[Rfam]
The family of this 93-nucleotide sequence from Coptis chinensis is "MIR2275 microRNA precursor family". Taxonomically the source falls in Coptis (Eukaryota, Spermatophyta, Mesangiospermae, Coptidoideae).

RNA sequence: GAUUUGAAUGUGAGAAUUGGAUGAAACCAAACCUUUUGCGCUCUAGAUGGUAGAAAGAGAGUUUGGUUUCCUCCAAUAUCUCACCUUCAACAG
Numbered sequence: 001g002a003u004u005u006g007a008a009u010g011u012g013a014g015a016a017u018u019g020g021a022u023g024a025a026a027c028c029a030a031a032c033c034u035u036u037u038g039c040g041c042u043c044u045a046g047a048u049g050g051u052a053g054a055a056a057g058a059g060a061g062u063u064u065g066g067u068u069u070c071c072u073c074c075a076a077u078a079u080c081u082c083a084c085c086u087u088c089a090a091c092a093g
Stems, first nucleotide, its partner, number of pairs: 004090005011083004016077006023070008032061001